[Rfam]
RNA: Small nucleolar RNA Z162
Organism: Corchorus capsularis
RNA sequence: AUUGGCACGAUGAGGAAUUUAUUGCAUAAACAUUGAGAUCAGUUGAUCUUUGAAAUUCUAAAAUUAUACAUUAAAGUCCUUUUCAUUCUGAGUGCCCU
Numbered sequence: 001a002u003u004g005g006c007a008c009g010a011u012g013a014g015g016a017a018u019u020u021a022u023u024g025c026a027u028a029a030a031c032a033u034u035g036a037g038a039u040c041a042g043u044u045g046a047u048c049u050u051u052g053a054a055a056u057u058c059u060a061a062a063a064u065u066a067u068a069c070a071u072u073a074a075a076g077u078c079c080u081u082u083u084c085a086u087u088c089u090g091a092g093u094g095c096c097c098u
Base pairs, nucleotide, nucleotide: 004096005095006094007093008092010086011085012084013083014082015081016080